[Rfam]
Rfam assigns this 189-nucleotide sequence from Cohnella thailandensis to the family "Lysine riboswitch aptamer". NCBI's taxonomy places the organism under Bacteria, Bacillati, Bacilli, Caryophanales, Cohnella. The match comes from Rfam's covariance-model search (108 bits).
RNA sequence: GGAUGAGGUAGAGGUUGCGAUGUUGAUGAGUACGUCGGAGGAAGUCCGGUAGAGGCUAAGGAUUCCGAUCGAAAGGCACCGUCGCCGAAGCAGCGCGGGUUACCGACCGCGCCGGCUGGGGCCGCUUCCGAACAGGGGCGGAACUGUCAUUCUGUCGAUCCGACGACAGAAUGAUGAGCUAUCUUGGAA
Numbered sequence: 001g002g003a004u005g006a007g008g009u010a011g012a013g014g015u016u017g018c019g020a021u022g023u024u025g026a027u028g029a030g031u032a033c034g035u036c037g038g039a040g041g042a043a044g045u046c047c048g049g050u051a052g053a054g055g056c057u058a059a060g061g062a063u064u065c066c067g068a069u070c071g072a073a074a075g076g077c078a079c080c081g082u083c084g085c086c087g088a089a090g091c092a093g094c095g096c097g098g099g100u101u102a103c104c105g106a107c108c109g110c111g112c113c114g115g116c117u118g119g120g121g122c123c124g125c126u127u128c129c130g131a132a133c134a135g136g137g138g139c140g141g142a143a144c145u146g147u148c149a150u151u152c153u154g155u156c157g158a159u160c161c162g163a164c165g166a167c168a169g170a171a172u173g174a175u176g177a178g179c180u181a182u183c184u185u186g187g188a189a
Base pairs, nucleotide, nucleotide: 006184007183008182009181010180011179017085018084019083020082021081022080024078025077034069035068036067037066038065039064040063089117090116091115093112094111095110096109097108098107118145119144122141123140124139125138126137127136128135147174148173149172150171151170152169153168154167155166156165